The family of this 289-nucleotide RNA sequence from Macaca nemestrina is "Mason-Pfizer monkey virus packaging signal".
The source organism's lineage runs through Eukaryota, Metazoa, Boreoeutheria, Simiiformes and Macaca.
Rfam 15.1 lists 2,921 matches to the family in 53 species.
A reference for the family is Mustafa et al. (2004), "Mutational analysis of the predicted secondary RNA structure of the Mason-Pfizer monkey virus packaging signal", Virus Res.
RNA sequence: UGGCGCCUGGAACAGGGACCUGGAAACGAGGGACCCUCCGUGAGGAAAGAGGACGCCAAAGGACCGGGUCGACGCUAACGAAGACAAAAGGAGUCAAACUCUUCCGAUCACCGCGGAAACCUGCGCGUCUAGAAUCGAAGGUAAUGACGUGUCCGAAAUGGGAACAAGAAUUAAGCCAACAUCAAUUAUAGUAGGAACAAUUAAAAGAGGCCUUUAAAGAUACGAGGAUAAAGGUUAAAGGUAAUGAUUUGUUUUAAAUUUUUUGAUUUGUAAAAGACACCUUGCCCUU
Numbered sequence: 001u002g003g004c005g006c007c008u009g010g011a012a013c014a015g016g017g018a019c020c021u022g023g024a025a026a027c028g029a030g031g032g033a034c035c036c037u038c039c040g041u042g043a044g045g046a047a048a049g050a051g052g053a054c055g056c057c058a059a060a061g062g063a064c065c066g067g068g069u070c071g072a073c074g075c076u077a078a079c080g081a082a083g084a085c086a087a088a089a090g091g092a093g094u095c096a097a098a099c100u101c102u103u104c105c106g107a108u109c110a111c112c113g114c115g116g117a118a119a120c121c122u123g124c125g126c127g128u129c130u131a132g133a134a135u136c137g138a139a140g141g142u143a144a145u146g147a148c149g150u151g152u153c154c155g156a157a158a159u160g161g162g163a164a165c166a167a168g169a170a171u172u173a174a175g176c177c178a179a180c181a182u183c184a185a186u187u188a189u190a191g192u193a194g195g196a197a198c199a200a201u202u203a204a205a206a207g208a209g210g211c212c213u214u215u216a217a218a219g220a221u222a223c224g225a226g227g228a229u230a231a232a233g234g235u236u237a238a239a240g241g242u243a244a245u246g247a248u249u250u251g252u253u254u255u256a257a258a259u260u261u262u263u264u265g266a267u268u269u270g271u272a273a274a275a276g277a278c279a280c281c282u283u284g285c286c287c288u289u
Stems, first nucleotide, its partner, number of pairs: 006032003039052001041050001101141002103138002108133001110130001112127004149165002152163003172216003175211003223265006229258001232250006273289002276286001278284001